[Rfam]
Nucleotides: 071
Base pairs, nucleotide, nucleotide: 001038002037003036004035005034006033007032019031020030021029045058046057047056048055049054
Number, partner (000 for none) and nucleotide at each position: 001038g002037g003036g004035g005034u006033g007032c008000g009000c010000a011000g012000u013000a014000g015000a016000c017000a018000u019031a020030c021029c022000u023000c024000c025000a026000c027000g028000u029021g030020g031019u032007g033006c034005a035004c036003c037002c038001u039000a040000g041000g042000c043000a044000a045058c046057g047056u048055a049054u050000a051000c052000u053000u054049a055048u056047a057046c058045g059000g060000c061000a062000a063000a064000a065000g066000g067000u068000c069000u070000a071000u
Record summary: HDV ribozyme from F. prausnitzii: a 71-nucleotide sequence from Rodentolepis nana. The family's consensus secondary structure is taken from published work. The organism belongs to Rodentolepis, within Eukaryota. It scores 48 bits against the family's covariance model.